The family of this 114-nucleotide RNA from Acanthochromis polyacanthus is "Potassium channel RNA editing signal". Taxonomically the source falls in Acanthochromis (Eukaryota, Deuterostomia, Actinopterygii, Eurypterygia). Pairs were carried over by alignment from the consensus structure, which is taken from published work.
RNA sequence: GUUGGUUACGGAGACAUGUAUCCCACCACCAUCGGGGGUAAAUUCGUGGGAUCUCUGUGCGCAAUAGCCGGAGUGUUAACCAUCGCUUUACCUGUCCCUGUGAUAGUGUCCAAU
Numbered sequence: 001g002u003u004g005g006u007u008a009c010g011g012a013g014a015c016a017u018g019u020a021u022c023c024c025a026c027c028a029c030c031a032u033c034g035g036g037g038g039u040a041a042a043u044u045c046g047u048g049g050g051a052u053c054u055c056u057g058u059g060c061g062c063a064a065u066a067g068c069c070g071g072a073g074u075g076u077u078a079a080c081c082a083u084c085g086c087u088u089u090a091c092c093u094g095u096c097c098c099u100g101u102g103a104u105a106g107u108g109u110c111c112a113a114u
Stems, first nucleotide, its partner, number of pairs: 001114002004111002007108003011104001014101003018097001020095002037077004050062001